[Rfam]
RNA sequence: CCAGAAAAGUUAAUGUGUAGCUUUAGCGAGCCGUGAGGUUCUGCUAGUCGCCGCCGGGCGGCGAGACCGUCAAAUUGCGGGAACUCCCUAAAGCCUCUGAACACCAAGCGGGAGGCGAAAGCCUCUCGUGGCCGGGGUAAUGACCUUGGGUAUGGUAACAGCGUCAGAGGAUGUACAAUGGGUGAUCCGCAGCCAAGUCCUAAGCCUUUGGGUACGGAUGCAGUUCAACGACUAGAUGGUGGUCGGUGGGCAGAGCCCGCUUAAGAUAUAGUCUGUCCCGCCCGAGAGGGUGCC
Numbered sequence: 001c002c003a004g005a006a007a008a009g010u011u012a013a014u015g016u017g018u019a020g021c022u023u024u025a026g027c028g029a030g031c032c033g034u035g036a037g038g039u040u041c042u043g044c045u046a047g048u049c050g051c052c053g054c055c056g057g058g059c060g061g062c063g064a065g066a067c068c069g070u071c072a073a074a075u076u077g078c079g080g081g082a083a084c085u086c087c088c089u090a091a092a093g094c095c096u097c098u099g100a101a102c103a104c105c106a107a108g109c110g111g112g113a114g115g116c117g118a119a120a121g122c123c124u125c126u127c128g129u130g131g132c133c134g135g136g137g138u139a140a141u142g143a144c145c146u147u148g149g150g151u152a153u154g155g156u157a158a159c160a161g162c163g164u165c166a167g168a169g170g171a172u173g174u175a176c177a178a179u180g181g182g183u184g185a186u187c188c189g190c191a192g193c194c195a196a197g198u199c200c201u202a203a204g205c206c207u208u209u210g211g212g213u214a215c216g217g218a219u220g221c222a223g224u225u226c227a228a229c230g231a232c233u234a235g236a237u238g239g240u241g242g243u244c245g246g247u248g249g250g251c252a253g254a255g256c257c258c259g260c261u262u263a264a265g266a267u268a269u270a271g272u273c274u275g276u277c278c279c280g281c282c283c284g285a286g287a288g289g290g291u292g293c294c
Stems, first nucleotide, its partner, number of pairs: 006024007029040003065244005071238002076191006086182003192224002197219004205212002228274001230273005246260006279292005
Source information
A member of the RNA family "Group I catalytic intron" from Tremella mesenterica, 294 nucleotides long. Rfam 15.1 lists 5,602 matches to the family in 1,395 species. Its family is annotated with Group I intron splicing in the Gene Ontology. On this family, see Cech, Annu Rev Biochem 1990: "Self-splicing of group I introns". The organism belongs to Tremella mesenterica, within Eukaryota. The family's consensus secondary structure is taken from published work.